[Rfam]
RNA sequence: CCAUCAUAACCAUUAAUCCUGACUAGCAGGAAGUAGCACUAGAAGACAUUUUACUCUUCCUGCAGCACUGAAUAUCAGAGAAAGCCCUCGGAAGAAAUCUUCCGAGGGCUUUUUUGU
Numbered sequence: 001c002c003a004u005c006a007u008a009a010c011c012a013u014u015a016a017u018c019c020u021g022a023c024u025a026g027c028a029g030g031a032a033g034u035a036g037c038a039c040u041a042g043a044a045g046a047c048a049u050u051u052u053a054c055u056c057u058u059c060c061u062g063c064a065g066c067a068c069u070g071a072a073u074a075u076c077a078g079a080g081a082a083a084g085c086c087c088u089c090g091g092a093a094g095a096a097a098u099c100u101u102c103c104g105a106g107g108g109c110u111u112u113u114u115u116g117u
Base pairs, nucleotide, nucleotide: 010036012034013033014032018030019029020028021027039062042059043058044057045056046055079114080113081112082111083110084109085108086107087106088105089104090103091102092101093100094099
RNA: Histidine operon leader